[Rfam]
Overview:
Actinobacteria sRNA Ms_IGR-5: a 210-nucleotide RNA from Nocardioides lianchengensis. A search with the family's covariance model found it, with a score of 120 bits. On this family, see Li et al., RNA 2013: "Identification of small RNAs in Mycobacterium smegmatis using heterologous Hfq". The pairing is the family consensus, mapped onto this sequence. The organism belongs to Nocardioides, within Bacteria. By type it is a small RNA.

RNA sequence: ACACGGGAAAGGAGGUGGUCCGAAGAAUGAGUUCUUUUAGGACGCGUGAGGUGGCUGCCCGCUAGCAGCCCCAGCAGGACGACGGGGCGGAAGCGCCCCUGACGCUGCUGGCGAAUACCAAGCAGCUACCCGACCCGCAGGCGAACCGGGACCACGUCCCCCGGUGCGGUCCGGACCCCGGUCCGGCACCACGCCUGCGGGUCGCUUCAU
Numbered sequence: 001a002c003a004c005g006g007g008a009a010a011g012g013a014g015g016u017g018g019u020c021c022g023a024a025g026a027a028u029g030a031g032u033u034c035u036u037u038u039a040g041g042a043c044g045c046g047u048g049a050g051g052u053g054g055c056u057g058c059c060c061g062c063u064a065g066c067a068g069c070c071c072c073a074g075c076a077g078g079a080c081g082a083c084g085g086g087g088c089g090g091a092a093g094c095g096c097c098c099c100u101g102a103c104g105c106u107g108c109u110g111g112c113g114a115a116u117a118c119c120a121a122g123c124a125g126c127u128a129c130c131c132g133a134c135c136c137g138c139a140g141g142c143g144a145a146c147c148g149g150g151a152c153c154a155c156g157u158c159c160c161c162c163g164g165u166g167c168g169g170u171c172c173g174g175a176c177c178c179c180g181g182u183c184c185g186g187c188a189c190c191a192c193g194c195c196u197g198c199g200g201g202u203c204g205c206u207u208c209a210u
Base pairs, nucleotide, nucleotide: 014059015058016057017056018055019054060113061112062111063110064109065108066107068105069104072101073100074099131204132203133202134201135200136199137198138197139196140195141194142193143192145165146164147163148162149161150160